[Rfam]
RNA sequence: GCCGGGUGGAGUAACGUCCGCUUGUAACCCAAGUGGGGGCUUUGAUGUGGUUGAACAUUAGUCCGGUCCACUGAGUCGGGCUCAUGGUUGCUUGCUUCUAGCCUGCCCGUUCCAAGCUAAGAAUGACUCGUGGGAUUUGUGCGAAGGCAUUAGAUCUCUUGAGUCUUAAAGCGUAAGGCACAGCGUGAGGCUGGUUUCACAGAGCAGCGACAAUUUCCUUCUCUUGGCAGUGGAAGGAUAACAGGCUGAUGCAAUCUAGGUCCACAAUGGCUCCGUAGGCCGUUCUUAAUUGAACAAUCACAUUU
Dot-bracket structure: ((((((((((......)))))))....(((....))))))...((((((((((..((((((..(((.(.((.((((((((((.(.(.(((.(......(((((((.((.(((((.(((((((..((((((.(((((((((((....))).)))))))).))))))(....).(.(((......(((....(((......)))....)))....))).)...)))))))..)))))))....)))))))..))))).).))))).....))))).)).).)))..).))).))..)))))))))).
Notes
Rfam assigns this 305-nucleotide RNA from Hibiscus syriacus to the family "Plant signal recognition particle RNA". Its family is annotated with signal recognition particle, endoplasmic reticulum targeting and SRP-dependent cotranslational protein targeting to membrane, signal sequence recognition in the Gene Ontology. The match comes from Rfam's covariance-model search (234 bits). The family is grouped with related families in Rfam's "SRP clan". For this family Rfam cites "Towards the structure of the mammalian signal recognition particle" (Wild et al., Curr Opin Struct Biol, 2002).